A member of the RNA family "Potassium channel RNA editing signal" from Hymenochirus boettgeri, 114 nucleotides long. Rfam's curators write: This family represents a group of sequences related to the human potassium channel Kv1.1 hairpin element which directs the efficient modification of an adenosine to inosine by an adenosine deaminase acting on RNA (ADAR). The ADAR modification causes an isoleucine/valine recoding event which lies in the ion-conducting pore of the potassium channel. It is thought that this editing event targets the process of fast inactivation and allows a more rapid recovery from inactivation at negative potentials. Pairs were carried over by alignment from the consensus structure, which is taken from published work. For this family Rfam cites "Control of human potassium channel inactivation by editing of a small mRNA hairpin" (Bhalla et al., Nat Struct Mol Biol, 2004). The source organism's lineage runs through Eukaryota, Vertebrata, Euteleostomi, Pipidae and Hymenochirus.

RNA sequence: GUAGGCUAUGGAGAUAUGUACCCUGAAACAGUAGGUGGGAAACUGGUUGGAUCUCUCUGUGCUAUUGCGGGUGUGUUGACCAUUUCCUUACCAGUGCCAGUUAUUGUAUCUAAC
Numbered sequence: 001g002u003a004g005g006c007u008a009u010g011g012a013g014a015u016a017u018g019u020a021c022c023c024u025g026a027a028a029c030a031g032u033a034g035g036u037g038g039g040a041a042a043c044u045g046g047u048u049g050g051a052u053c054u055c056u057c058u059g060u061g062c063u064a065u066u067g068c069g070g071g072u073g074u075g076u077u078g079a080c081c082a083u084u085u086c087c088u089u090a091c092c093a094g095u096g097c098c099a100g101u102u103a104u105u106g107u108a109u110c111u112a113a114c
Stems, first nucleotide, its partner, number of pairs: 001114002004111002007108005013102003018097004037077002040074001049063002